[Rfam]
RNA sequence: UCUCCACCACUGAUAGACCUUGAACAACCUGUUAUUCUUUUGGUUUGCACUGGGAUGGGGGAAAAAAAAAAAAAUCCCUGCACUUCCUAUCUGUCUUUGUGGCGACCCAGAUUAAAUAAGGAACUACAUUU
Number, nucleotide and partner (000 for none) at each position: 001u000002c000003u062004c061005c060006a000007c058008c057009a000010c000011u049012g048013a000014u047015a046016g045017a044018c043019c042020u000021u000022g037023a036024a035025c000026a033027a032028c000029c000030u000031g000032u027033u026034a000035u024036u023037c022038u000039u000040u000041u000042g019043g018044u017045u016046u015047g014048c012049a011050c000051u000052g000053g000054g000055a000056u000057g008058g007059g000060g005061g004062a003063a000064a000065a000066a000067a000068a000069a000070a000071a000072a000073a000074a000075u123076c000077c121078c120079u119080g000081c000082a000083c000084u000085u000086c000087c110088u109089a000090u000091c000092u104093g103094u102095c101096u000097u000098u000099g000100u000101g095102g094103c093104g092105a000106c000107c000108c000109a088110g087111a000112u000113u000114a000115a000116a000117u000118a000119a079120g078121g077122a000123a075124c000125u000126a000127c000128a000129u000130u000131u000
Rfam assigns this 131-nucleotide RNA sequence from Pipistrellus kuhlii to the family "Small nucleolar RNA SNORA31". The family's consensus secondary structure was predicted with RNAalifold. The family's RNA type in Rfam is H/ACA-box small nucleolar RNA. Rfam links the family to the GO terms RNA processing and nucleolus.